[Rfam]
RNA sequence: CCGAUCGUCAAAUUGGUUGUGGCGUGUUGUCUAGAUUUUCAUAUCACAGCCAUUUUUGACGAGUUGGA
Numbered sequence: 001c002c003g004a005u006c007g008u009c010a011a012a013u014u015g016g017u018u019g020u021g022g023c024g025u026g027u028u029g030u031c032u033a034g035a036u037u038u039u040c041a042u043a044u045c046a047c048a049g050c051c052a053u054u055u056u057u058g059a060c061g062a063g064u065u066g067g068a
Base pairs, nucleotide, nucleotide: 005062006061007060008059009058010057011056012055014052015051016050017049018048019047020046021045022044025043026042027041

The record is a 68-nucleotide sequence from Nasonia vitripennis, which matches "mir-2 microRNA precursor family" in Rfam. Rfam links the family to the GO terms RISC complex and miRNA-mediated post-transcriptional gene silencing. A reference for the family is Lee and Ambros (2001), "An extensive class of small RNAs in Caenorhabditis elegans", Science.